The family of this 75-nucleotide sequence from Alligator sinensis is "Mammalian CPEB3 ribozyme". Its family is annotated with RNA nuclease activity in the Gene Ontology.
RNA sequence: AGUUGCCAUAAUGGCCAUAGCAGAUGUGCUCACUUUGCAGACCUGUUAGAGUCUAAUGGUUCUGUGAAUUCUGCU
Numbered sequence: 001a002g003u004u005g006c007c008a009u010a011a012u013g014g015c016c017a018u019a020g021c022a023g024a025u026g027u028g029c030u031c032a033c034u035u036u037g038c039a040g041a042c043c044u045g046u047u048a049g050a051g052u053c054u055a056a057u058g059g060u061u062c063u064g065u066g067a068a069u070u071c072u073g074c075u
Base pairs, nucleotide, nucleotide: 013043014042015040019075020074021073022072023071024070026038027037028036047064048063049062050061051060052059053058